[Rfam]
RNA: mir-29 microRNA precursor family
Organism: Clupea harengus
RNA sequence: GGAAGCUGGUUUCAGAUGGUGGAUUAGAUGUACGCUUCUCUGGUCUAGCACCAUUUGAAAUCAGUGUUCC
Numbered sequence: 001g002g003a004a005g006c007u008g009g010u011u012u013c014a015g016a017u018g019g020u021g022g023a024u025u026a027g028a029u030g031u032a033c034g035c036u037u038c039u040c041u042g043g044u045c046u047a048g049c050a051c052c053a054u055u056u057g058a059a060a061u062c063a064g065u066g067u068u069c070c
Base pairs, nucleotide, nucleotide: 001070002069003068004067005065006064007063008062009061010060011059012058013057014056016054017053018052019051020050021049025047026046027045028044